This 133-nucleotide RNA sequence from Desulfitobacterium metallireducens belongs to the Rfam family "Molybdenum/Tungsten riboswitch aptamer (Moco RNA motif)". On this family, see Regulski et al., Mol Microbiol 2008: "in molybdenum cofactor and tungsten cofactor metabolism".
RNA sequence: CUAUAAUAAUUGUACCGAGCCUAGAGACCUACAGAGUUUCCAUGGUCCUAGGCCGUUUCAGGAUUCCUGAAACCGGGGUAUAUCUAGAAAUGGAUAGGCCUUCCAAAUGAAAAGGAGGAUUUAGAGCAUGGAG
Number, nucleotide and partner (000 for none) at each position: 001c000002u000003a000004u126005a000006a000007u000008a000009a000010u000011u119012g000013u117014a000015c115016c114017g000018a000019g053020c052021c051022u050023a049024g048025a000026g047027a046028c045029c044030u000031a000032c000033a000034g040035a039036g000037u000038u000039u035040c034041c000042a000043u000044g029045g028046u027047c026048c024049u023050a022051g021052g020053c019054c000055g073056u072057u071058u070059c069060a068061g067062g000063a000064u000065u000066c000067c061068u060069g059070a058071a057072a056073c055074c000075g000076g101077g100078g099079u098080a000081u096082a095083u094084c093085u092086a091087g000088a000089a000090a000091u086092g085093g084094a083095u082096a081097g000098g079099c078100c077101u076102u110103c109104c000105a000106a000107a000108u000109g103110a102111a000112a000113a000114g016115g015116a000117g013118g000119a011120u000121u000122u000123a000124g000125a000126g004127c000128a000129u000130g000131g000132a000133g000

The match comes from Rfam's covariance-model search (61 bits).